RNA sequence: GUGGGCUACGGGGACAUGUAUCCCAUGACCAUCGGGGGCAAGAUUGUGGGCUCCUUGUGUGCCAUUGCAGGGGUGCUCACCAUCGCCCUCCCCGUCCCUGUCAUCGUGUCCAAC
Numbered sequence: 001g002u003g004g005g006c007u008a009c010g011g012g013g014a015c016a017u018g019u020a021u022c023c024c025a026u027g028a029c030c031a032u033c034g035g036g037g038g039c040a041a042g043a044u045u046g047u048g049g050g051c052u053c054c055u056u057g058u059g060u061g062c063c064a065u066u067g068c069a070g071g072g073g074u075g076c077u078c079a080c081c082a083u084c085g086c087c088c089u090c091c092c093c094g095u096c097c098c099u100g101u102c103a104u105c106g107u108g109u110c111c112a113a114c
Stems, first nucleotide, its partner, number of pairs: 001114002004111002007108005013102004018097001020095002037077004049063003